[Rfam]
RNA: Small nucleolar RNA SNORA20
Organism: Physeter macrocephalus
RNA sequence: UAUUUAAAACUAACUCGUUCCUUCAGUGAUAUAAGCAGUUAUACGCAUGGGAUAAAAUAAUGUUGGGCCAUUGUAAAUUGAGGUGAAGUAACCAUUUCAUCUCUUCUCCAUGGUCUAGACGUUG
Numbered sequence: 001u002a003u004u005u006a007a008a009a010c011u012a013a014c015u016c017g018u019u020c021c022u023u024c025a026g027u028g029a030u031a032u033a034a035g036c037a038g039u040u041a042u043a044c045g046c047a048u049g050g051g052a053u054a055a056a057a058u059a060a061u062g063u064u065g066g067g068c069c070a071u072u073g074u075a076a077a078u079u080g081a082g083g084u085g086a087a088g089u090a091a092c093c094a095u096u097u098c099a100u101c102u103c104u105u106c107u108c109c110a111u112g113g114u115c116u117a118g119a120c121g122u123u124g
Base pairs, nucleotide, nucleotide: 001049002048003047009039010038011037015033017030019029020028063118064117065116066115067114068113069112070111072110073109075107080103081102082101083100084099085098086097087096088095089094